[Rfam]
RNA sequence: AUCGGUACCUUCACAAUAGCAUAGACUUUCAGGCUGUAUAGAGUAAGUGCUAUUUGUUGGGGUAGUUUUA
Numbered sequence: 001a002u003c004g005g006u007a008c009c010u011u012c013a014c015a016a017u018a019g020c021a022u023a024g025a026c027u028u029u030c031a032g033g034c035u036g037u038a039u040a041g042a043g044u045a046a047g048u049g050c051u052a053u054u055u056g057u058u059g060g061g062g063u064a065g066u067u068u069u070a
Base pairs, nucleotide, nucleotide: 004066006064007063008062009061010060011059013057014056015055016054018051019050020049021048022047025044026043027042

Annotation: miR-430 microRNA precursor family: a 70-nucleotide RNA sequence from Triplophysa tibetana. The base pairs follow the family's consensus structure, which was predicted with RNAalifold.